[Rfam]
RNA sequence: UCAUUGAGAUGCUGGGCGCUAUGGUCGUCCUCCUCCGGCUGACCUCCUUCUCAGCUGCUGACCGGCGCCGCACAGGCGGCAUCUCAGCUUCGUGUGCAAAAAGCCCGUC
Dot-bracket structure: ......(((((((.((((((...(((.........(((((((........)))))))..))).))))))[[[[[[[[)))))))..]]]].]]]]..............